The record is a 117-nucleotide RNA from Perkinsus marinus, which matches "U4 spliceosomal RNA" in Rfam. NCBI's taxonomy places the organism under Eukaryota, Perkinsozoa, Perkinsea, Perkinsidae, Perkinsus marinus. Pairs were carried over by alignment from the consensus structure, which is taken from published work. The match comes from Rfam's covariance-model search (89 bits). The family's RNA type in Rfam is spliceosomal small nuclear RNA. Rfam links the family to the GO terms U4 snRNP and spliceosomal tri-snRNP complex assembly.
RNA sequence: AUCCUUGCGGGAGGGGCAAUAGCGCUAUCUAUGACGCCUUGCGGAGAUGCGCUUUUUGCUAGUUGAAAACUACUCCAAUUCCCGUCGCGAGAUUCUAACGGAUCCCGUCGCAAUUUU
Numbered sequence: 001a002u003c004c005u006u007g008c009g010g011g012a013g014g015g016g017c018a019a020u021a022g023c024g025c026u027a028u029c030u031a032u033g034a035c036g037c038c039u040u041g042c043g044g045a046g047a048u049g050c051g052c053u054u055u056u057u058g059c060u061a062g063u064u065g066a067a068a069a070c071u072a073c074u075c076c077a078a079u080u081c082c083c084g085u086c087g088c089g090a091g092a093u094u095c096u097a098a099c100g101g102a103u104c105c106c107g108u109c110g111c112a113a114u115u116u117u
Base pairs, nucleotide, nucleotide: 021053022052023051024050025049027048028047029046035043036042037041084111085110088107089106091104092103093102094101095100